This 74-nucleotide RNA sequence from Caenorhabditis elegans belongs to the Rfam family "mir-246 microRNA precursor family". A reference for the family is de Wit et al. (2009), "Repertoire and evolution of miRNA genes in four divergent nematode species", Genome Res. Rfam 15.1 lists 8 matches to the family in 6 species. The family's consensus secondary structure was predicted with RNAalifold.

[Rfam]
RNA sequence: AACAUCGCCUAACCGUUGUCAUGUAAUAUUUCCCAGAGAAAAUGAUAUUACAUGUUUCGGGUAGGAGCUGUUCA
Numbered sequence: 001a002a003c004a005u006c007g008c009c010u011a012a013c014c015g016u017u018g019u020c021a022u023g024u025a026a027u028a029u030u031u032c033c034c035a036g037a038g039a040a041a042a043u044g045a046u047a048u049u050a051c052a053u054g055u056u057u058c059g060g061g062u063a064g065g066a067g068c069u070g071u072u073c074a
Stems, first nucleotide, its partner, number of pairs: 008065004013060003020054010032044001